[Rfam]
RNA sequence: GUGACAGAAGAGAGUGAGCACCCAUCGCCUUUCUUGCAAAUUAUGAGAUUCAUAAGCUUUAAGUGAUGUGUGCUCACCCUCUAUCUGUCAC
Numbered sequence: 001g002u003g004a005c006a007g008a009a010g011a012g013a014g015u016g017a018g019c020a021c022c023c024a025u026c027g028c029c030u031u032u033c034u035u036g037c038a039a040a041u042u043a044u045g046a047g048a049u050u051c052a053u054a055a056g057c058u059u060u061a062a063g064u065g066a067u068g069u070g071u072g073c074u075c076a077c078c079c080u081c082u083a084u085c086u087g088u089c090a091c
Stems, first nucleotide, its partner, number of pairs: 001091008010081003014077008023068003
Record summary: A member of the RNA family "mir-156 microRNA precursor family" from Artemisia annua, 91 nucleotides long. About the family: This family represents the plant microRNA (miRNA) precursor mir-156. Pairs were carried over by alignment from the consensus structure, which was predicted with PFOLD.